Rfam assigns this 149-nucleotide sequence from Hypsibius exemplaris to the family "Small nucleolar RNA SNORA57". A reference for the family is Vitali et al. (2003), "Identification of 13 novel human modification guide RNAs", Nucleic Acids Res. The family has 26 seed sequences and 1,736 matches in Rfam 15.1. Gene Ontology terms of the family: nucleolus and RNA processing. About the family: U99 belongs to the H/ACA class of snoRNAs which are thought to guide the sites of modification of uridines to pseudouridines, the target for this family is unknown.
RNA sequence: CCUCCUUUCUUGGCAUGGCACUUCUGUUCCUGAAAGAGUCAUGUAUGCUUAACGGGAGGAAGAGAAGAGUCUUGUUGAAGUCAUGCCUUCGGUGCUGGUGCCGACCCUUUGUCACUGCACCAGUCCCAUCCUCUAGACGUCAUACAAUU
Dot-bracket structure: (((((........((((((.(((..........))).))))))...........)))))................(((.((.............(((((((...............))))))).............)).))).......